[Rfam]
RNA sequence: GCGGUACAAACUGAGCAGGCGAUGGAUCUUGUGUGAUCAGGUCCGUGGGGCCGGGCCGUUUUCGGCAGCGGAUGCAUGGCAUCCGCGGGACAGUA
Numbered sequence: 001g002c003g004g005u006a007c008a009a010a011c012u013g014a015g016c017a018g019g020c021g022a023u024g025g026a027u028c029u030u031g032u033g034u035g036a037u038c039a040g041g042u043c044c045g046u047g048g049g050g051c052c053g054g055g056c057c058g059u060u061u062u063c064g065g066c067a068g069c070g071g072a073u074g075c076a077u078g079g080c081a082u083c084c085g086c087g088g089g090a091c092a093g094u095a
Stems, first nucleotide, its partner, number of pairs: 010094004016089001018052003022046008055066004068086006
A member of the RNA family "NiCo (Nickel/Cobalt) riboswitch aptamer" from [Clostridium] hylemonae, 95 nucleotides long. Its Rfam clan is "NiCo_riboswitches". The organism belongs to [Clostridium] hylemonae, within Bacteria.